[Rfam]
RNA sequence: AUUCUAGUAUUGGCCUUAAUCUACAUGUGUUGAGGUGGAUUGAUGUGUAAAUUAGUUUAAGUUAUACCCAAUCCAUCUCAAUACAUGUGGAUUGGGGUCAAUAUUAGA
Dot-bracket structure: ...(((((((((((.(((((((((((((((((..((((((((..(((.................))).))))))))..))))))))))))))))).))))))))))).